[Rfam]
RNA sequence: CACACACGGACUUUGGUGUCUGCCGGGAGAAAUCCGGUUGAGACCUCCGGUGGCGUUUCAGGGUUUCCUGUCUCGUCAAGUGUCCGUGGAGGCUAACCGGAAAAGGACCUAAAGAA
Numbered sequence: 001c002a003c004a005c006a007c008g009g010a011c012u013u014u015g016g017u018g019u020c021u022g023c024c025g026g027g028a029g030a031a032a033u034c035c036g037g038u039u040g041a042g043a044c045c046u047c048c049g050g051u052g053g054c055g056u057u058u059c060a061g062g063g064u065u066u067c068c069u070g071u072c073u074c075g076u077c078a079a080g081u082g083u084c085c086g087u088g089g090a091g092g093c094u095a096a097c098c099g100g101a102a103a104a105g106g107a108c109c110u111a112a113a114g115a116a
Stems, first nucleotide, its partner, number of pairs: 001091001003089001005088007015045002023037002026035001052077004

A member of the RNA family "rpsB sRNA" from Mesorhizobium sp. NBSH29, 116 nucleotides long. Rfam 15.1 lists 245 matches to the family in 245 species. A reference for the family is Meyer et al. (2009), "Identification of candidate structured RNAs in the marine organism 'Candidatus Pelagibacter ubique'", BMC Genomics. The base pairs follow the family's consensus structure, which is taken from published work. The match comes from Rfam's covariance-model search (42 bits). NCBI's taxonomy places the organism under Bacteria, Pseudomonadota, Hyphomicrobiales, Phyllobacteriaceae, Mesorhizobium.